[Rfam]
RNA sequence: AUGGAGACAUGGCCUAAAGCCGGAUCGUGAGAGACAUUGGCUCCAUUCACUCAUUAGUCUGUAACUUGAAUUAAUCCACAUCUCAUGUU
Numbered sequence: 001a002u003g004g005a006g007a008c009a010u011g012g013c014c015u016a017a018a019g020c021c022g023g024a025u026c027g028u029g030a031g032a033g034a035c036a037u038u039g040g041c042u043c044c045a046u047u048c049a050c051u052c053a054u055u056a057g058u059c060u061g062u063a064a065c066u067u068g069a070a071u072u073a074a075u076c077c078a079c080a081u082c083u084c085a086u087g088u089u
Stems, first nucleotide, its partner, number of pairs: 004084004010022004027079003
RNA: ctgf/hcs24 CAESAR
Organism: Cavia porcellus